[Rfam]
RNA sequence: AAGCGGGCCCUGUGCGACAGGGCUCCGUGAACCAUGUCAGGCGGGGAACCGAGCAGCAUUAAGCGGAUGAUUCUGUGCGCCGCAGCAAGCCUGUUUGCC
Numbered sequence: 001a002a003g004c005g006g007g008c009c010c011u012g013u014g015c016g017a018c019a020g021g022g023c024u025c026c027g028u029g030a031a032c033c034a035u036g037u038c039a040g041g042c043g044g045g046g047a048a049c050c051g052a053g054c055a056g057c058a059u060u061a062a063g064c065g066g067a068u069g070a071u072u073c074u075g076u077g078c079g080c081c082g083c084a085g086c087a088a089g090c091c092u093g094u095u096u097g098c099c
Base pairs, nucleotide, nucleotide: 004093005092006091007090008089010085011084012083013082014081015077017076018075019074020073021072022071024067025066026065027064028063034059035058036057037056042051043050044049